[Rfam]
A member of the RNA family "Small nucleolar RNA Z107/R87" from Raphanus sativus, 113 nucleotides long.
The family's consensus secondary structure was predicted with RNAfold.
Taxonomically the source falls in Raphanus (Eukaryota, Streptophytina, Gunneridae, Pentapetalae).
Rfam links the family to the GO terms nucleolus and RNA processing.
A reference for the family is Barneche et al. (2001), "Identification of 66 box C/D snoRNAs in Arabidopsis thaliana: extensive gene duplications generated multiple isoforms predicting new ribosomal RNA 2'-O-methylation sites", J Mol Biol.

RNA sequence: GAAGGCAGUGACGACUCGGAAAUAUUCAAGCUCAACAGACCGUAAUCAGGCGUUUCUUUCAUUUAAUUCGGAGAUUCGUUUAUGUGUCGAUAAUCCCGCUGAACUGAGCCUUC
Numbered sequence: 001g002a003a004g005g006c007a008g009u010g011a012c013g014a015c016u017c018g019g020a021a022a023u024a025u026u027c028a029a030g031c032u033c034a035a036c037a038g039a040c041c042g043u044a045a046u047c048a049g050g051c052g053u054u055u056c057u058u059u060c061a062u063u064u065a066a067u068u069c070g071g072a073g074a075u076u077c078g079u080u081u082a083u084g085u086g087u088c089g090a091u092a093a094u095c096c097c098g099c100u101g102a103a104c105u106g107a108g109c110c111u112u113c
Stems, first nucleotide, its partner, number of pairs: 001113006